[Rfam]
RNA sequence: CCAUGAACUUUAUACCGUGCACAUCACUUAGAUGGGCUCUUGAAAGUCACGUAGGAG
Dot-bracket structure: ..................((.((((.....)))).))....................
RNA: Plastid-ndhJ 3UTR RNA
Organism: Macleaya cordata